[Rfam]
RNA sequence: GGUUCGAGGGCCUUCCGGUGGGACGGAGGGCACGCAUGGAACCAGACCCCCUGCUUCGCAAGCGGCGAUGCACCGGCCCCCCGACGGUGCGCGCC
Numbered sequence: 001g002g003u004u005c006g007a008g009g010g011c012c013u014u015c016c017g018g019u020g021g022g023a024c025g026g027a028g029g030g031c032a033c034g035c036a037u038g039g040a041a042c043c044a045g046a047c048c049c050c051c052u053g054c055u056u057c058g059c060a061a062g063c064g065g066c067g068a069u070g071c072a073c074c075g076g077c078c079c080c081c082c083g084a085c086g087g088u089g090c091g092c093g094c095c
Stems, first nucleotide, its partner, number of pairs: 001043005010031008064095004071089005
About this RNA:
Rhodo-rpoB RNA: a 95-nucleotide RNA sequence from Fertoeibacter niger. The base pairs follow the family's consensus structure, which is taken from published work. The match comes from Rfam's covariance-model search (58 bits). Lineage of the source: Bacteria > Pseudomonadota > Alphaproteobacteria > Rhodobacterales > Fertoeibacter.